[Rfam]
RNA sequence: AAGCAUUAAAGUAAGAUGUUGUGCCAGAAAGCAGUAUCUUAGUAGCUUAAUAUGGGUUUUACAUUUACCGCAAGCUGGCUAGAGAGAAAUUCUUGAAAGAAAAUGUUAAAA
Number, nucleotide and partner (000 for none) at each position: 001a048002a047003g046004c045005a000006u000007u000008a000009a000010a000011g000012u041013a040014a039015g038016a037017u036018g035019u034020u033021g032022u031023g000024c078025c077026a076027g075028a000029a000030a000031g022032c021033a020034g019035u018036a017037u016038c015039u014040u013041a012042g000043u000044a000045g004046c003047u002048u001049a000050a000051u000052a000053u000054g000055g000056g000057u000058u000059u000060u000061a106062c105063a104064u000065u000066u000067a000068c000069c000070g000071c000072a000073a000074g000075c027076u026077g025078g024079c000080u000081a000082g094083a093084g092085a091086g000087a000088a000089a000090u000091u085092c084093u083094u082095g000096a000097a000098a000099g000100a000101a000102a000103a000104u063105g062106u061107u000108a000109a000110a000111a000
The record is a 111-nucleotide RNA sequence, which matches "drum RNA" in Rfam. Firmicutes, Bacteroidetes (1 example), Proteobacteria (2 examples), Spirochaetes (2 examples). It is one of the family's seed sequences.